Source information:
mir-2545 microRNA precursor family: a 117-nucleotide RNA sequence from Drosophila pseudoobscura.
RNA sequence: UCCUCCUCAAGGAGUAAAUGUUCUACUGCGCGAGGGCAUAGGGCAGAUUCUCAAUAUUCCCUGGGCUCUGCUGUCCGAUGCCCUCACGCAGUACAAGAAUUUCCUCCUCGAGGAGGA
Numbered sequence: 001u002c003c004u005c006c007u008c009a010a011g012g013a014g015u016a017a018a019u020g021u022u023c024u025a026c027u028g029c030g031c032g033a034g035g036g037c038a039u040a041g042g043g044c045a046g047a048u049u050c051u052c053a054a055u056a057u058u059c060c061c062u063g064g065g066c067u068c069u070g071c072u073g074u075c076c077g078a079u080g081c082c083c084u085c086a087c088g089c090a091g092u093a094c095a096a097g098a099a100u101u102u103c104c105u106c107c108u109c110g111a112g113g114a115g116g117a
Stems, first nucleotide, its partner, number of pairs: 001117008010108005016102004021096002024093007032085008041076006050065004
Rfam 15.1 lists 9 matches to the family in 3 species. The sequence is in the family's curated seed alignment. The base pairs follow the family's consensus structure, which was predicted with RNAalifold. The organism belongs to Sophophora, within Eukaryota.